[Rfam]
RNA sequence: AGGAGAACAACCGCAGUGGCGGGGCCAGCUCUGGAGCCCUGGAGUCAGCCCCCGCAGUAACUCCGGAGGUAUCUGUCUGCAGGGCCUAGAGGCUCCGGGGCGGG
Numbered sequence: 001a002g003g004a005g006a007a008c009a010a011c012c013g014c015a016g017u018g019g020c021g022g023g024g025c026c027a028g029c030u031c032u033g034g035a036g037c038c039c040u041g042g043a044g045u046c047a048g049c050c051c052c053c054g055c056a057g058u059a060a061c062u063c064c065g066g067a068g069g070u071a072u073c074u075g076u077c078u079g080c081a082g083g084g085c086c087u088a089g090a091g092g093c094u095c096c097g098g099g100g101c102g103g104g
Stems, first nucleotide, its partner, number of pairs: 002096004009087001011084002018077006027070001029068007039057003
The record is a 104-nucleotide RNA sequence from Canis lupus, which matches "mir-8834 microRNA precursor family" in Rfam. Gene Ontology terms of the family: miRNA-mediated post-transcriptional gene silencing and RISC complex. NCBI's taxonomy places the organism under Eukaryota, Metazoa, Gnathostomata, Mammalia, Canis lupus. The base pairs follow the family's consensus structure, which was predicted with RNAalifold.